[Rfam]
RNA: mir-877 microRNA precursor family
Organism: Catagonus wagneri
RNA sequence: GUAGAGGAGAUGGCACGGGGGACGUGGGCCAAGACCAGGGGUUGCUGGGACCUCCUGACACAGGCCCUCUUCUCCCUCCUCCCAG
Dot-bracket structure: ...((((((..((...(((((.(.((.(.......((((((((....)).)).)))).).)).).)))))...))))))))....